A member of the RNA family "c-di-AMP riboswitch aptamer (ydaO/yuaA leader)" from Modestobacter sp. DSM 44400, 158 nucleotides long. It scores 69 bits against the family's covariance model. This family represents a conserved RNA structure found upstream of the ydaO and yuaA genes in Bacillus subtilis and related genes in other bacteria. The ydaO/yuaA element is thought to act as a genetic 'off' switch for the ydaO and yuaA genes in its native state. It is believed that the element may be triggered during osmotic shock leading to activation of ydaO, a predicted amino acid transporter gene, and members of the yuaA-yubG operon which code for KtrA and KtrB K+ transporters.
RNA sequence: CGCCGGGUGCCGCCGAGUCGCUGCGCCACCGCGCAGCGAGCCGGGGACCCACCGCAGCACUGGGGUGAAUCCUGCCCGCGAGCACCGCUCGGGAGCAGGUAGGGCGUCUUCCUGCCCGAAUCCGUCAGCUAACUCGGUAGGCGGCCGUUGGAAGAACG
Number, nucleotide and partner (000 for none) at each position: 001c000002g000003c000004c000005g000006g000007g000008u000009g000010c000011c143012g142013c141014c140015g000016a000017g000018u039019c038020g037021c036022u035023g034024c033025g032026c031027c000028a000029c000030c000031g026032c025033g024034c023035a022036g021037c020038g019039a018040g138041c137042c136043g135044g134045g133046g000047a000048c000049c000050c062051a061052c000053c000054g000055c000056a000057g000058c000059a000060c000061u051062g050063g123064g122065g121066u000067g000068a000069a000070u000071c099072c098073u097074g096075c000076c000077c000078g000079c000080g000081a000082g000083c000084a000085c000086c000087g000088c000089u000090c000091g000092g000093g000094a000095g000096c074097a073098g072099g071100u000101a000102g117103g116104g115105c114106g000107u000108c000109u000110u000111c000112c000113u000114g105115c104116c103117c102118g000119a000120a000121u065122c064123c063124g000125u000126c000127a000128g000129c000130u000131a000132a000133c045134u044135c043136g042137g041138u040139a000140g014141g013142c012143g011144g000145c000146c000147g000148u000149u000150g000151g000152a000153a000154g000155a000156a000157c000158g000